[Rfam]
Rfam assigns this 62-nucleotide RNA sequence from Felis catus to the family "Gag/pol translational readthrough site". For this family Rfam cites "RNA pseudoknots: translational frameshifting and readthrough on viral RNAs" (ten Dam et al., Virus Genes, 1990). NCBI's taxonomy places the organism under Eukaryota, Mammalia, Feliformia, Felinae, Felis.
RNA sequence: UAGGGGGAACAGGGUUCGGAUCCCCUCCCCGAACCUAGGGUAACGCUACAAGUGGAGGGGAA
Numbered sequence: 001u002a003g004g005g006g007g008a009a010c011a012g013g014g015u016u017c018g019g020a021u022c023c024c025c026u027c028c029c030c031g032a033a034c035c036u037a038g039g040g041u042a043a044c045g046c047u048a049c050a051a052g053u054g055g056a057g058g059g060g061a062a
Stems, first nucleotide, its partner, number of pairs: 008041001010039001012036004016031001018029002022060006